[Rfam]
RNA sequence: CUGUCACCGCGGACGCUGAUGUGCGACGGAGUCCGCCGCGGGAGCAGACGAUUUGAAGACGUCCAUCGCACCGCAUCGAACACCUAUCGGUGCGGCCCGAGAACGGGAGAGAACGCUGAGCGUUACGAA
Numbered sequence: 001c002u003g004u005c006a007c008c009g010c011g012g013a014c015g016c017u018g019a020u021g022u023g024c025g026a027c028g029g030a031g032u033c034c035g036c037c038g039c040g041g042g043a044g045c046a047g048a049c050g051a052u053u054u055g056a057a058g059a060c061g062u063c064c065a066u067c068g069c070a071c072c073g074c075a076u077c078g079a080a081c082a083c084c085u086a087u088c089g090g091u092g093c094g095g096c097c098c099g100a101g102a103a104c105g106g107g108a109g110a111g112a113a114c115g116c117u118g119a120g121c122g123u124u125a126c127g128a129a
Base pairs, nucleotide, nucleotide: 001047002046003045004044007041008040009039010038011037012036071095072094073093074092075091076090077089078088

Rfam assigns this 129-nucleotide sequence from Corynebacterium lubricantis to the family "atpB RNA".
The sequence is in the family's curated seed alignment.
Taxonomically the source falls in Corynebacterium lubricantis (Bacteria, Actinomycetes, Corynebacteriaceae, Corynebacterium).